[Rfam]
RNA sequence: UCGGUGCCUGCAGACCCCCGACAUUCUAUGACGGCUCGCCGUCCAAGUUCUGC
Numbered sequence: 001u002c003g004g005u006g007c008c009u010g011c012a013g014a015c016c017c018c019c020g021a022c023a024u025u026c027u028a029u030g031a032c033g034g035c036u037c038g039c040c041g042u043c044c045a046a047g048u049u050c051u052g053c
Stems, first nucleotide, its partner, number of pairs: 001021004006016001010053005030043005
RNA: chrB-b RNA